[Rfam]
RNA sequence: CGAGCGGGCCAGGCGGUCGCGCACUGCGGUGCGAGGAAAGUCCGGGCUCCACAGGGCAGGAUGCCAGCUAACGGCUGGGCGGGGCGACCCGACGGACAGUGCCACAGAAAAGGAAACUCCCCCGCGCACGCGCCUCGGCGCAACGCGCGGCGAGAAAAGCUGAAACGGUGCGGUAAGAGCGCACCAGCGCGUCGGCAACGGCGCGGCUUGGAAAACCCCAUCCGGAGCAAGCGCAAAUAGGAACGCGACACGGUUGCCCGCCGUGCGUUCGGGUUGCGUGCUUAAGGCGUUUGGCGACAGGCGCCUCAGAUAAAUGGCCGUCCAACGACAGAACCCGGCUUAUCGGCCCGCUCGCCCA
Numbered sequence: 001c002g003a004g005c006g007g008g009c010c011a012g013g014c015g016g017u018c019g020c021g022c023a024c025u026g027c028g029g030u031g032c033g034a035g036g037a038a039a040g041u042c043c044g045g046g047c048u049c050c051a052c053a054g055g056g057c058a059g060g061a062u063g064c065c066a067g068c069u070a071a072c073g074g075c076u077g078g079g080c081g082g083g084g085c086g087a088c089c090c091g092a093c094g095g096a097c098a099g100u101g102c103c104a105c106a107g108a109a110a111a112g113g114a115a116a117c118u119c120c121c122c123c124g125c126g127c128a129c130g131c132g133c134c135u136c137g138g139c140g141c142a143a144c145g146c147g148c149g150g151c152g153a154g155a156a157a158a159g160c161u162g163a164a165a166c167g168g169u170g171c172g173g174u175a176a177g178a179g180c181g182c183a184c185c186a187g188c189g190c191g192u193c194g195g196c197a198a199c200g201g202c203g204c205g206g207c208u209u210g211g212a213a214a215a216c217c218c219c220a221u222c223c224g225g226a227g228c229a230a231g232c233g234c235a236a237a238u239a240g241g242a243a244c245g246c247g248a249c250a251c252g253g254u255u256g257c258c259c260g261c262c263g264u265g266c267g268u269u270c271g272g273g274u275u276g277c278g279u280g281c282u283u284a285a286g287g288c289g290u291u292u293g294g295c296g297a298c299a300g301g302c303g304c305c306u307c308a309g310a311u312a313a314a315u316g317g318c319c320g321u322c323c324a325a326c327g328a329c330a331g332a333a334c335c336c337g338g339c340u341u342a343u344c345g346g347c348c349c350g351c352u353c354g355c356c357c358a
Stems, first nucleotide, its partner, number of pairs: 001354010011343001012322007020033005038341003042338005047227004054259004059223005064078005079093001080091004094218002099216002102211002117159002120154001122152001125149003167185006187207001188205007231279004241270006250264005286305008
Dot-bracket structure: ((((((((((((((((((.(((((....)))))....[[[.[[[[[((((...[[[[.((((((((((.....)))))(((((....)))).)((...((.((.............((.(.(..(((...................)))..).)...)).......((((((.......)))))).((((((((....))))))).)..))...)))))))))))))...((((......((((((...(((((.]]]]))))))))))).....))))......((((((((....))))))))..........)))))))...........]]]]]]]].).))))))))))....
Rfam assigns this 358-nucleotide RNA sequence from Coriobacteriaceae bacterium CHKCI002 to the family "Bacterial RNase P class A". The organism belongs to Coriobacteriaceae, within Bacteria. Rfam classes the family as a ribozyme. Gene Ontology terms of the family: dimeric ribonuclease P complex, tRNA processing and ribonuclease P activity. Rfam's curators write: Ribonuclease P (RNase P) is a ubiquitous endoribonuclease, found in archaea, bacteria and eukarya as well as chloroplasts and mitochondria.